[Rfam]
The family of this 104-nucleotide sequence from Streptococcus infantis is "Streptococcus sRNA SpF44". On this family, see Mann et al., PLoS Pathog 2012: "Control of virulence by small RNAs in Streptococcus pneumoniae". It is annotated as a small RNA. NCBI's taxonomy places the organism under Bacteria, Bacillota, Bacilli, Streptococcus, Streptococcus infantis.
RNA sequence: AUGUCAUCCCGUGAGGUGACGAAGACGCAGAUAUAUAUGAAAAUUUUUAAAUAUUGGGAUAACCAUGUUUUAAAGAUGUCUUACUCUGAGAGCCUAUUGCUGUA
Dot-bracket structure: .(((((..((....))))))).....((((..(((........((((((((.................)))))))).((.((......)).)).)))..)))).
Numbered sequence: 001a002u003g004u005c006a007u008c009c010c011g012u013g014a015g016g017u018g019a020c021g022a023a024g025a026c027g028c029a030g031a032u033a034u035a036u037a038u039g040a041a042a043a044u045u046u047u048u049a050a051a052u053a054u055u056g057g058g059a060u061a062a063c064c065a066u067g068u069u070u071u072a073a074a075g076a077u078g079u080c081u082u083a084c085u086c087u088g089a090g091a092g093c094c095u096a097u098u099g100c101u102g103u104a
Stems, first nucleotide, its partner, number of pairs: 002021005009016002027103004033097003044076008078093002081090002